[Rfam]
RNA sequence: UCGCUAUCCGCAAAUUGGUCUGGCCAAGUAAGCGGAAGGUACCCCUGCAUCGUAACGAGUGAAGCACUCGACAAGGUGAAGCG
Numbered sequence: 001u002c003g004c005u006a007u008c009c010g011c012a013a014a015u016u017g018g019u020c021u022g023g024c025c026a027a028g029u030a031a032g033c034g035g036a037a038g039g040u041a042c043c044c045c046u047g048c049a050u051c052g053u054a055a056c057g058a059g060u061g062a063a064g065c066a067c068u069c070g071a072c073a074a075g076g077u078g079a080a081g082c083g
Stems, first nucleotide, its partner, number of pairs: 002083003007036005016026004038045002048078004056070006

Overview: Rfam assigns this 83-nucleotide RNA from Jezberella montanilacus to the family "SucA RNA motif". The family's RNA type in Rfam is cis-regulatory element. Lineage of the source: Bacteria > Pseudomonadota > Betaproteobacteria > Burkholderiales > Jezberella. Pairs were carried over by alignment from the consensus structure, which is taken from published work. For this family Rfam cites "Identification of 22 candidate structured RNAs in bacteria using the CMfinder comparative genomics pipeline" (Weinberg et al., Nucleic Acids Res, 2007).